RNA sequence: UCGAUCCCUGCGGGAGAGACCGGCUCUAAGCAUUUGCGACGAGCCGGCGCCGAAGGCGCAACCGCCCCGGAAACGCUCAGGCAAAAGGACCGCAGGGGGAUG
Numbered sequence: 001u002c003g004a005u006c007c008c009u010g011c012g013g014g015a016g017a018g019a020c021c022g023g024c025u026c027u028a029a030g031c032a033u034u035u036g037c038g039a040c041g042a043g044c045c046g047g048c049g050c051c052g053a054a055g056g057c058g059c060a061a062c063c064g065c066c067c068c069g070g071a072a073a074c075g076c077u078c079a080g081g082c083a084a085a086a087g088g089a090c091c092g093c094a095g096g097g098g099g100a101u102g
Base pairs, nucleotide, nucleotide: 006097007096008095009094010093011092012091013090020047021046022045023044024043025042026041049082050081051080052078053077056076057075058074062070063069